[Rfam]
RNA sequence: CAUUCCUUCAAAGGGGAGUAGCUGCAAGUGAUUUUUACUUGAACCAAAGUCGUCAUUACGUGGAUUAUUUCCACCGGCUUUGUUUGGCAUGAUACAUAAAUGUCUAGCAAGACCUUUGCCUCGUUCGUACACAAGGCAGGGGUCUUUUUUGUAUUCAUAAAGAUCCCUCAUUUU
Numbered sequence: 001c002a003u004u005c006c007u008u009c010a011a012a013g014g015g016g017a018g019u020a021g022c023u024g025c026a027a028g029u030g031a032u033u034u035u036u037a038c039u040u041g042a043a044c045c046a047a048a049g050u051c052g053u054c055a056u057u058a059c060g061u062g063g064a065u066u067a068u069u070u071c072c073a074c075c076g077g078c079u080u081u082g083u084u085u086g087g088c089a090u091g092a093u094a095c096a097u098a099a100a101u102g103u104c105u106a107g108c109a110a111g112a113c114c115u116u117u118g119c120c121u122c123g124u125u126c127g128u129a130c131a132c133a134a135g136g137c138a139g140g141g142g143u144c145u146u147u148u149u150u151g152u153a154u155u156c157a158u159a160a161a162g163a164u165c166c167c168u169c170a171u172u173u174u
Base pairs, nucleotide, nucleotide: 026040027039043084045082046081047080048079049078050077051076052075060074061073062072063071064070086174087173089171090170091169092168